[Rfam]
RNA sequence: CAUAUCAAAGGCGAUGGAGUUCGCCAAUAACCGCGUAAAAAGCUAAUGACUCCUACUCAAUU
Numbered sequence: 001c002a003u004a005u006c007a008a009a010g011g012c013g014a015u016g017g018a019g020u021u022c023g024c025c026a027a028u029a030a031c032c033g034c035g036u037a038a039a040a041a042g043c044u045a046a047u048g049a050c051u052c053c054u055a056c057u058c059a060a061u062u
Base pairs, nucleotide, nucleotide: 010025011024012023013022016053017052018051019050020049021048033043034042
Dot-bracket structure: .........[[[[..((((((]]]].......((.......))....)))))).........
Annotation: This 62-nucleotide sequence belongs to the Rfam family "Fluoride riboswitch aptamer (crcB RNA motif)". The literature on the family includes a 2012 paper in Science by Baker et al., "Widespread genetic switches and toxicity resistance proteins for fluoride". The base pairs follow the family's consensus structure, which is taken from published work. It scores 58 bits against the family's covariance model. Rfam 15.1 lists 2,293 matches to the family in 1,982 species.